[Rfam]
RNA sequence: GGGCUCGUGGUCUAGCUGGUUAUGACGUCGCCUUGACAUGGCGGAGGUCCGGAGUUCGACUCUCCGCGGGCCCA
Number, nucleotide and partner (000 for none) at each position: 001g073002g072003g071004c070005u069006c068007g067008u000009g000010g026011u025012c024013u000014a000015g000016c000017u000018g000019g000020u000021u000022a000023u000024g012025a011026c010027g000028u044029c043030g042031c041032c040033u000034u000035g000036a000037c000038a000039u000040g032041g031042c030043g029044g028045a000046g000047g000048u000049c000050c066051g065052g064053a063054g062055u000056u000057c000058g000059a000060c000061u000062c054063u053064c052065c051066g050067c007068g006069g005070g004071c003072c002073c001074a000

Description
Rfam assigns this 74-nucleotide RNA sequence from Methanolobus zinderi to the family "tRNA". The organism belongs to Methanolobus, within Archaea. The family's consensus secondary structure is taken from published work.